[Rfam]
RNA: Flavo-1 RNA
RNA sequence: UUUUAGCCCUGAUAGCAGCGGCAUCCUUUUUUGUGUUAUUUAAUAGGACUAAACGUAGGUUGAAGAAAAAGGUUUAAGAUGAAGAGAAACUUUAAGGCUACCUACAAAAAAGAUAUAGCGGAUAGCAGGAAAUAGC
Number, nucleotide and partner (000 for none) at each position: 001u000002u000003u000004u000005a000006g000007c000008c000009c128010u127011g126012a000013u124014a123015g000016c000017a000018g119019c118020g000021g000022c000023a114024u113025c112026c000027u000028u000029u109030u108031u107032u106033g105034u104035g103036u000037u000038a000039u000040u000041u000042a000043a000044u000045a000046g000047g000048a000049c000050u000051a000052a000053a000054c000055g000056u000057a000058g000059g000060u000061u000062g000063a000064a000065g000066a000067a000068a000069a000070a000071g000072g000073u000074u000075u000076a000077a000078g000079a000080u000081g000082a000083a000084g000085a000086g000087a000088a000089a000090c000091u000092u000093u000094a000095a000096g000097g000098c000099u000100a000101c000102c000103u035104a034105c033106a032107a031108a030109a029110a000111a000112g025113a024114u023115a000116u000117a000118g019119c018120g000121g000122a000123u014124a013125g000126c011127a010128g009129g000130a000131a000132a000133u000134a000135g000136c000